terC RNA: a 62-nucleotide RNA from Microvirga makkahensis.
Lineage of the source: Bacteria > Pseudomonadati > Pseudomonadota > Hyphomicrobiales > Microvirga.

RNA sequence: ACCCCGAUCCGGAACCCUCUGACGUAAGCCAGCCGGCACUUGCGUGAUGUCGGAUCUUCCCU
Numbered sequence: 001a002c003c004c005c006g007a008u009c010c011g012g013a014a015c016c017c018u019c020u021g022a023c024g025u026a027a028g029c030c031a032g033c034c035g036g037c038a039c040u041u042g043c044g045u046g047a048u049g050u051c052g053g054a055u056c057u058u059c060c061c062u
Stems, first nucleotide, its partner, number of pairs: 006056007022045007
The base pairs follow the family's consensus structure, which is taken from published work.